Record summary: A member of the RNA family "Bacterial RNase P class A" from Sphingomonas xinjiangensis, 375 nucleotides long. The base pairs follow the family's consensus structure, which is taken from published work. Lineage of the source: Bacteria > Pseudomonadati > Alphaproteobacteria > Sphingomonadaceae > Sphingomonas.

[Rfam]
RNA sequence: UCAGAGGGUUGGGCGGCCGCGUUGGCACCGCAAGGUGUCACCGAGGAAAGUCCGGGCUCCACGGAACAACGGUGCCGGGUAACGCCCGGCGGGGGCGACCCCAGGGAAAGUGCCACAGAGAGCAGACCGCCCACUGCCGGAGACGGUAAGGGUAAGGGUGAAAGGGUGCGGCAAAAGCGCACCGCGCGACCGGUAACGGAAGCGGCAUGGUAAACCCCACCGGGAGCAAGACCGAAUAGGGACGGCACAUGCGCCUCGUUCCGGCGCGUCGUCCGGGUUGGUUGCUGGAGCGGCGGAGCGAUCCGUCGCCUAGAGGAAUGGUCGCACAGCCCCUUCGGGGGUGGACAGAACCCGGCUUAUAGACCCUCUGGCUUU
Numbered sequence: 001u002c003a004g005a006g007g008g009u010u011g012g013g014c015g016g017c018c019g020c021g022u023u024g025g026c027a028c029c030g031c032a033a034g035g036u037g038u039c040a041c042c043g044a045g046g047a048a049a050g051u052c053c054g055g056g057c058u059c060c061a062c063g064g065a066a067c068a069a070c071g072g073u074g075c076c077g078g079g080u081a082a083c084g085c086c087c088g089g090c091g092g093g094g095g096c097g098a099c100c101c102c103a104g105g106g107a108a109a110g111u112g113c114c115a116c117a118g119a120g121a122g123c124a125g126a127c128c129g130c131c132c133a134c135u136g137c138c139g140g141a142g143a144c145g146g147u148a149a150g151g152g153u154a155a156g157g158g159u160g161a162a163a164g165g166g167u168g169c170g171g172c173a174a175a176a177g178c179g180c181a182c183c184g185c186g187c188g189a190c191c192g193g194u195a196a197c198g199g200a201a202g203c204g205g206c207a208u209g210g211u212a213a214a215c216c217c218c219a220c221c222g223g224g225a226g227c228a229a230g231a232c233c234g235a236a237u238a239g240g241g242a243c244g245g246c247a248c249a250u251g252c253g254c255c256u257c258g259u260u261c262c263g264g265c266g267c268g269u270c271g272u273c274c275g276g277g278u279u280g281g282u283u284g285c286u287g288g289a290g291c292g293g294c295g296g297a298g299c300g301a302u303c304c305g306u307c308g309c310c311u312a313g314a315g316g317a318a319u320g321g322u323c324g325c326a327c328a329g330c331c332c333c334u335u336c337g338g339g340g341g342u343g344g345a346c347a348g349a350a351c352c353c354g355g356c357u358u359a360u361a362g363a364c365c366c367u368c369u370g371g372c373u374u375u
Stems, first nucleotide, its partner, number of pairs: 001371010011360001013325006020043002023040006048358003052355005057226004065260003070222005075089005090104001091102004105217002110215002112211003127157002129153003135148005165183006184206001185204003190199003230283004240274006251267005290309008